[Rfam]
Record summary
Rfam assigns this 91-nucleotide sequence from Pseudomonas sp. HPB0071 to the family "ivy-DE RNA". Pairs were carried over by alignment from the consensus structure, which is taken from published work.

RNA sequence: UAGGCCAAGGGGCUUGGGUGCUUUGCGGUAAGAGGAGCAUCCUCAGGGUACAGGGAGUACCUUCGUCGUUACGAGCCAGGCUGGACGAUAU
Dot-bracket structure: ((.(((....((((.((((.((((.........)))).))))..(((((((.....)))))))..........)))).)))))........